Small nucleolar RNA SNORD25: an 86-nucleotide RNA from Theobroma umbraticum. The literature on the family includes a 2001 paper in Nucleic Acids Res by Qu et al., "Identification of 10 novel snoRNA gene clusters from Arabidopsis thaliana".
RNA sequence: AAGAACGUUGAUGAGCUAUAACAGACCUGUAAUGAAUUGCGAACAUGAUCGCAGCUCUUUACGAACAUCUAAGGGACUGAGUUCUA
Number, nucleotide and partner (000 for none) at each position: 001a000002a085003g084004a083005a082006c081007g000008u000009u000010g000011a000012u000013g000014a000015g000016c000017u000018a000019u000020a000021a000022c000023a000024g000025a000026c000027c000028u000029g000030u000031a000032a000033u000034g000035a000036a000037u000038u000039g000040c000041g000042a000043a000044c000045a000046u000047g000048a000049u000050c000051g000052c000053a000054g000055c000056u000057c000058u000059u000060u000061a000062c000063g000064a000065a000066c000067a000068u000069c000070u000071a000072a000073g000074g000075g000076a000077c000078u000079g000080a000081g006082u005083u004084c003085u002086a000
Notes: The base pairs follow the family's consensus structure, which was predicted with PFOLD. Gene Ontology terms of the family: nucleolus and RNA processing. It is annotated as a C/D-box small nucleolar RNA.